Rfam assigns this 254-nucleotide RNA from Sulfobacillus sp. hq2 to the family "HNH endonuclease-associated RNA and ORF (HEARO) RNA".
The match comes from Rfam's covariance-model search (121 bits).
By type it is a non-coding RNA gene.
The source organism's lineage runs through Bacteria, Bacillati, Bacillota, Clostridia and Sulfobacillus.
A reference for the family is Weinberg et al. (2009), "Exceptional structured noncoding RNAs revealed by bacterial metagenome analysis", Nature.

RNA sequence: GUCAACCACCCCGCCCUGAAGGGCGGAGCUUGCGGCAUUGCGUACGCUCCAUCGGUUGACCAGUCUUAGUCGCCCGCAUCGACAGGAGCCUUUCGGUUCCGGGGAGGGAGCGACUCCGUUCGAAUCGUCAGGACACCCGGGGAUGCUUCUCCAGUCCCCGGCUCUGUCGCCCGCGGUUAAACGCGAGCUCGGGGUAGUGCCAGCCGUGCCGCGGACCAGACAAGCGUUUCGAACCUGGACGAGGAGAGACCCUC
Numbered sequence: 001g002u003c004a005a006c007c008a009c010c011c012c013g014c015c016c017u018g019a020a021g022g023g024c025g026g027a028g029c030u031u032g033c034g035g036c037a038u039u040g041c042g043u044a045c046g047c048u049c050c051a052u053c054g055g056u057u058g059a060c061c062a063g064u065c066u067u068a069g070u071c072g073c074c075c076g077c078a079u080c081g082a083c084a085g086g087a088g089c090c091u092u093u094c095g096g097u098u099c100c101g102g103g104g105a106g107g108g109a110g111c112g113a114c115u116c117c118g119u120u121c122g123a124a125u126c127g128u129c130a131g132g133a134c135a136c137c138c139g140g141g142g143a144u145g146c147u148u149c150u151c152c153a154g155u156c157c158c159c160g161g162c163u164c165u166g167u168c169g170c171c172c173g174c175g176g177u178u179a180a181a182c183g184c185g186a187g188c189u190c191g192g193g194g195u196a197g198u199g200c201c202a203g204c205c206g207u208g209c210c211g212c213g214g215a216c217c218a219g220a221c222a223a224g225c226g227u228u229u230c231g232a233a234c235c236u237g238g239a240c241g242a243g244g245a246g247a248g249a250c251c252c253u254c
Stems, first nucleotide, its partner, number of pairs: 001060007010028001012025002015022002029046001031044004063240004068115005118234007126226003133167002137161008145250001147248006169216001171214007181207002183204002187200002